Rfam assigns this 369-nucleotide sequence from Dissulfurirhabdus thermomarina to the family "Bacterial RNase P class A". Rfam describes the family as follows. Ribonuclease P (RNase P) is a ubiquitous endoribonuclease, found in archaea, bacteria and eukarya as well as chloroplasts and mitochondria. By type it is a ribozyme. NCBI's taxonomy places the organism under Bacteria, Thermodesulfobacteriota, Dissulfuribacteria, Dissulfuribacterales, Dissulfurirhabdus.

RNA sequence: UGGAGACGGCGGGUGAUCGCCCGGCGGGGGUUCCCGCCGGGAGGAAAGUCCGGGCUCCGCAGGGCAGGGUGGUCCGUAACUCGGACCGGGGGCGACCCCAGGGAAAGUGCCACAGAAAGCAGACCGCCCCGCCGCCGGCGGGGUAAGGGUGAAACGGUGAGGUAAGAGCUCACCAGCCGCGGUGGCGACACCGCGGGCUCGGCAAACCCCACCCGGAGCAAGAUCACGUAGGGAAGCGUUCGAGGGUGGCCCGCCCGAGGCUUCCGGGUAGAUCGCCAGAGGUGCCGGGCAACCGGCAUCCCCAGAUGAAUGAUCACCACCCCGGCCCGGCCGGGGGGACAGAACCCGGCUUACAGCCGUCUCCAUCGG
Numbered sequence: 001u002g003g004a005g006a007c008g009g010c011g012g013g014u015g016a017u018c019g020c021c022c023g024g025c026g027g028g029g030g031u032u033c034c035c036g037c038c039g040g041g042a043g044g045a046a047a048g049u050c051c052g053g054g055c056u057c058c059g060c061a062g063g064g065c066a067g068g069g070u071g072g073u074c075c076g077u078a079a080c081u082c083g084g085a086c087c088g089g090g091g092g093c094g095a096c097c098c099c100a101g102g103g104a105a106a107g108u109g110c111c112a113c114a115g116a117a118a119g120c121a122g123a124c125c126g127c128c129c130c131g132c133c134g135c136c137g138g139c140g141g142g143g144u145a146a147g148g149g150u151g152a153a154a155c156g157g158u159g160a161g162g163u164a165a166g167a168g169c170u171c172a173c174c175a176g177c178c179g180c181g182g183u184g185g186c187g188a189c190a191c192c193g194c195g196g197g198c199u200c201g202g203c204a205a206a207c208c209c210c211a212c213c214c215g216g217a218g219c220a221a222g223a224u225c226a227c228g229u230a231g232g233g234a235a236g237c238g239u240u241c242g243a244g245g246g247u248g249g250c251c252c253g254c255c256c257g258a259g260g261c262u263u264c265c266g267g268g269u270a271g272a273u274c275g276c277c278a279g280a281g282g283u284g285c286c287g288g289g290c291a292a293c294c295g296g297c298a299u300c301c302c303c304a305g306a307u308g309a310a311u312g313a314u315c316a317c318c319a320c321c322c323c324g325g326c327c328c329g330g331c332c333g334g335g336g337g338g339a340c341a342g343a344a345c346c347c348g349g350c351u352u353a354c355a356g357c358c359g360u361c362u363c364c365a366u367c368g369g
Stems, first nucleotide, its partner, number of pairs: 001365010011354001012318007020041009046352003050349005055218004062252004067214005072086005087101001088099004102209002107207002109203003124148002126144008156174006176198001177196008222274004232265006244256004281300008
Background:
The base pairs follow the family's consensus structure, which is taken from published work.